[Rfam]
RNA sequence: CUCAAGGGGCUAUUCGCGAUUGCCCCGUGAGGCGACAGCCCAAAGAUCGCGUCCUAACUCCCGAAAAACAGGAGCUUGGACGCCAUG
Numbered sequence: 001c002u003c004a005a006g007g008g009g010c011u012a013u014u015c016g017c018g019a020u021u022g023c024c025c026c027g028u029g030a031g032g033c034g035a036c037a038g039c040c041c042a043a044a045g046a047u048c049g050c051g052u053c054c055u056a057a058c059u060c061c062c063g064a065a066a067a068a069c070a071g072g073a074g075c076u077u078g079g080a081c082g083c084c085a086u087g
Stems, first nucleotide, its partner, number of pairs: 006026005049083006
The family of this 87-nucleotide RNA from Pannonibacter phragmitetus is "chrB-a RNA". A search with the family's covariance model found it, with a score of 64 bits.